[Rfam]
RNA sequence: CACGUCAGCGCGAUGUCAGUGCACGCGCCAGGAAAUCGCGUCCACGUCAGCGCGAGUUGCUGACGUGGAUGCGAUUUCCUGGCGCGUGCACUGACAUCGCGCUGACGUGG
Number, nucleotide and partner (000 for none) at each position: 001c109002a108003c107004g106005u105006c104007a103008g102009c101010g100011c099012g098013a097014u096015g095016u094017c000018a000019g091020u090021g089022c088023a087024c000025g085026c084027g083028c082029c081030a080031g079032g078033a077034a076035a075036u074037c073038g072039c071040g070041u000042c068043c067044a066045c065046g064047u063048c062049a061050g060051c059052g058053c000054g000055a000056g000057u000058u052059g051060c050061u049062g048063a047064c046065g045066u044067g043068g042069a000070u040071g039072c038073g037074a036075u035076u034077u033078c032079c031080u030081g029082g028083c027084g026085c025086g000087u023088g022089c021090a020091c019092u000093g000094a016095c015096a014097u013098c012099g011100c010101g009102c008103u007104g006105a005106c004107g003108u002109g001110g000
Shown here is a 110-nucleotide sequence from Gossypium mustelinum, a member of the family "MIR7486 microRNA precursor family". A search with the family's covariance model found it, with a score of 69 bits.